[Rfam]
Rfam assigns this 54-nucleotide RNA sequence from Sphingomonas lacunae to the family "terC RNA".

RNA sequence: GAUGCGGGCCGGGCCCCUCUGGCGACACACAUGUCGCGAUGUCGGACCGCAUCG
Numbered sequence: 001g002a003u004g005c006g007g008g009c010c011g012g013g014c015c016c017c018u019c020u021g022g023c024g025a026c027a028c029a030c031a032u033g034u035c036g037c038g039a040u041g042u043c044g045g046a047c048c049g050c051a052u053c054g
Stems, first nucleotide, its partner, number of pairs: 006048002009045004022037006

The organism belongs to Sphingomonas, within Bacteria.